[Rfam]
Shown here is a 174-nucleotide RNA sequence from Alkalibacillus haloalkaliphilus, a member of the family "Group II catalytic intron D1-D4-3". Group II introns are found in rRNA, tRNA and mRNA of organelles in fungi, plants and protists, and also in mRNA in bacteria. The match comes from Rfam's covariance-model search (142 bits). The base pairs follow the family's consensus structure.
RNA sequence: UCCAUGGUGACGUGGAAUCUGAAGGAAGCCCUAGACAAACCUCUGGUUUGACGAACAGAAAUCAUAUAAGAGGCAACGUAUGAGGAUAAGACUGCUAAAGAAGUUGAAGUCCUAUAGCUACUCAUAUCAUACGGUGUAAAUAUGGCAGAUAGAUGGAGCGAAAGAGUUCACACC
Numbered sequence: 001u002c003c004a005u006g007g008u009g010a011c012g013u014g015g016a017a018u019c020u021g022a023a024g025g026a027a028g029c030c031c032u033a034g035a036c037a038a039a040c041c042u043c044u045g046g047u048u049u050g051a052c053g054a055a056c057a058g059a060a061a062u063c064a065u066a067u068a069a070g071a072g073g074c075a076a077c078g079u080a081u082g083a084g085g086a087u088a089a090g091a092c093u094g095c096u097a098a099a100g101a102a103g104u105u106g107a108a109g110u111c112c113u114a115u116a117g118c119u120a121c122u123c124a125u126a127u128c129a130u131a132c133g134g135u136g137u138a139a140a141u142a143u144g145g146c147a148g149a150u151a152g153a154u155g156g157a158g159c160g161a162a163a164g165a166g167u168u169c170a171c172a173c174c
Base pairs, nucleotide, nucleotide: 001016002015003014004013005012006011028174032170035167036166041158042157043156044155045154046150047149048148049147050146062145063144064143065142066141067140073137074136075135077133078132079131080130081129082128083127084112085111086110087109090105091104092103093102